[Rfam]
RNA sequence: UGGAAGUGAUGAAAUAGAGAUAAUUGGAUGUCUCUCUGAAUGGUGUAUGUGUGAUAAAUGGAAUUUAAACCAAGUCAGACUGGGGGUGGGGUGUGGGGAGUGUGUGUGUAUGUGUGUGUGUGUAUAGAAAAGGCUUUACACGGGGGCACUGAUAGUGCAGUGCUGAUUCCGGAGUGCAUCUGAGGCAUGUUGUUGAGUUCUAGGGUGCCACUUUACAACAUUGCCAAUGAUUAAAGCCCAAAACAAGCCCACCAAGACAAGCCUAGGCAUCUUAAAUCUCUAACGGGUUCAUUAGUGAAAAUGAUCCUGUGAUCUGAUCCAA
Numbered sequence: 001u002g003g004a005a006g007u008g009a010u011g012a013a014a015u016a017g018a019g020a021u022a023a024u025u026g027g028a029u030g031u032c033u034c035u036c037u038g039a040a041u042g043g044u045g046u047a048u049g050u051g052u053g054a055u056a057a058a059u060g061g062a063a064u065u066u067a068a069a070c071c072a073a074g075u076c077a078g079a080c081u082g083g084g085g086g087u088g089g090g091g092u093g094u095g096g097g098g099a100g101u102g103u104g105u106g107u108g109u110a111u112g113u114g115u116g117u118g119u120g121u122g123u124a125u126a127g128a129a130a131a132g133g134c135u136u137u138a139c140a141c142g143g144g145g146g147c148a149c150u151g152a153u154a155g156u157g158c159a160g161u162g163c164u165g166a167u168u169c170c171g172g173a174g175u176g177c178a179u180c181u182g183a184g185g186c187a188u189g190u191u192g193u194u195g196a197g198u199u200c201u202a203g204g205g206u207g208c209c210a211c212u213u214u215a216c217a218a219c220a221u222u223g224c225c226a227a228u229g230a231u232u233a234a235a236g237c238c239c240a241a242a243a244c245a246a247g248c249c250c251a252c253c254a255a256g257a258c259a260a261g262c263c264u265a266g267g268c269a270u271c272u273u274a275a276a277u278c279u280c281u282a283a284c285g286g287g288u289u290c291a292u293u294a295g296u297g298a299a300a301a302u303g304a305u306c307c308u309g310u311g312a313u314c315u316g317a318u319c320c321a322a
Stems, first nucleotide, its partner, number of pairs: 001321004188220006195213001197208002200205001
RNA: Small Cajal body-specific RNA 7